Annotation: The record is a 110-nucleotide RNA sequence from Bacillus gobiensis, which matches "epsC RNA" in Rfam. NCBI's taxonomy places the organism under Bacteria, Bacillati, Bacillota, Bacillaceae, Bacillus. Pairs were carried over by alignment from the consensus structure, which is taken from published work. The match comes from Rfam's covariance-model search (97 bits). It is annotated as a cis-regulatory element. The family has 30 seed sequences and 450 matches in Rfam 15.1.

RNA sequence: GGGUGAUGCCUCCCAACCCCUAUCAAGUGAGGCACUCGGCUUUGCUGUGGGUCAUUGCACCUUAGACGCGAGUCGUCAUUAGCAGAGUGUGAGGACGGGUUAGAUGCCCA
Numbered sequence: 001g002g003g004u005g006a007u008g009c010c011u012c013c014c015a016a017c018c019c020c021u022a023u024c025a026a027g028u029g030a031g032g033c034a035c036u037c038g039g040c041u042u043u044g045c046u047g048u049g050g051g052u053c054a055u056u057g058c059a060c061c062u063u064a065g066a067c068g069c070g071a072g073u074c075g076u077c078a079u080u081a082g083c084a085g086a087g088u089g090u091g092a093g094g095a096c097g098g099g100u101u102a103g104a105u106g107c108c109c110a
Stems, first nucleotide, its partner, number of pairs: 001019004007034006035093004039088008049062004065077004097109004